[Rfam]
RNA sequence: CGAGUUGAUCGCUAGGGUUCCGGCCUCUUCGGAGGCGCUGCGACCGAGAGCGGUCGCCCGUCCGCUCCGGGCGGGUCCACGGCGGGACAAAAGCCCGGGAGAC
Numbered sequence: 001c002g003a004g005u006u007g008a009u010c011g012c013u014a015g016g017g018u019u020c021c022g023g024c025c026u027c028u029u030c031g032g033a034g035g036c037g038c039u040g041c042g043a044c045c046g047a048g049a050g051c052g053g054u055c056g057c058c059c060g061u062c063c064g065c066u067c068c069g070g071g072c073g074g075g076u077c078c079a080c081g082g083c084g085g086g087a088c089a090a091a092a093g094c095c096c097g098g099g100a101g102a103c
Stems, first nucleotide, its partner, number of pairs: 007055006015045002020042001021040001022038001023036005056076008078098001080101001084096003
RNA: Guanidine-I riboswitch aptamer